[Rfam]
c-di-GMP-I riboswitch aptamer: an 85-nucleotide sequence from Halolactibacillus alkaliphilus. The organism belongs to Halolactibacillus, within Bacteria.
RNA sequence: AUAAAUAUCAGGCAAACUUAACGAAAGUUAAGGACGCAAAGCUACGGGUCUAAAGUAGAUAUACAAUGAUCGCCGGGUUGCAGGA
Numbered sequence: 001a002u003a004a005a006u007a008u009c010a011g012g013c014a015a016a017c018u019u020a021a022c023g024a025a026a027g028u029u030a031a032g033g034a035c036g037c038a039a040a041g042c043u044a045c046g047g048g049u050c051u052a053a054a055g056u057a058g059a060u061a062u063a064c065a066a067u068g069a070u071c072g073c074c075g076g077g078u079u080g081c082a083g084g085a
Stems, first nucleotide, its partner, number of pairs: 012037002017032006040079004045075003048070003055064003
GEMM was predicted in a large-scale screen for bacterial structured RNA regulatory elements. Its family is annotated with cyclic-di-GMP binding in the Gene Ontology.